[Rfam]
RNA sequence: AACAGAGCUGACGACUGACGGAUUUAAUGUGGAGAACCACGUGGGAGUCUGUCUCUGUGGCAUGCCGACCGUCUGGGCAACAUUU
Numbered sequence: 001a002a003c004a005g006a007g008c009u010g011a012c013g014a015c016u017g018a019c020g021g022a023u024u025u026a027a028u029g030u031g032g033a034g035a036a037c038c039a040c041g042u043g044g045g046a047g048u049c050u051g052u053c054u055c056u057g058u059g060g061c062a063u064g065c066c067g068a069c070c071g072u073c074u075g076g077g078c079a080a081c082a083u084u085u
Stems, first nucleotide, its partner, number of pairs: 003057005008051001010049003015044002017073005029040004063079004
Source information:
ZMP/ZTP riboswitch aptamer (pfl RNA motif): an 85-nucleotide RNA from Blautia hydrogenotrophica. NCBI's taxonomy places the organism under Bacteria, Lachnospirales, Lachnospiraceae, Blautia, Blautia hydrogenotrophica.